The record is a 98-nucleotide sequence from Ananas comosus, which matches "small nucleolar RNA snoR126" in Rfam. The source organism's lineage runs through Eukaryota, Streptophyta, Streptophytina, Magnoliopsida and Ananas. Rfam 15.1 lists 423 matches to the family in 200 species. Gene Ontology terms of the family: RNA processing and nucleolus. The literature on the family includes a 2009 paper in Nucleic Acids Res by Chen and Wu, "Mining small RNA sequencing data: a new approach to identify small nucleolar RNAs in Arabidopsis". A search with the family's covariance model found it, with a score of 81 bits.

RNA sequence: UGGCUGUGAUGACUAAUCUCAUUUCUCGAUUCUGAUCAAUAAACUGUUAAGUUUAGGACCAAAUUUUUGAUGACUUUAUUUGUGCGUGUCUGAGCCGC
Numbered sequence: 001u002g003g004c005u006g007u008g009a010u011g012a013c014u015a016a017u018c019u020c021a022u023u024u025c026u027c028g029a030u031u032c033u034g035a036u037c038a039a040u041a042a043a044c045u046g047u048u049a050a051g052u053u054u055a056g057g058a059c060c061a062a063a064u065u066u067u068u069g070a071u072g073a074c075u076u077u078a079u080u081u082g083u084g085c086g087u088g089u090c091u092g093a094g095c096c097g098c
Base pairs, nucleotide, nucleotide: 001097002096003095004094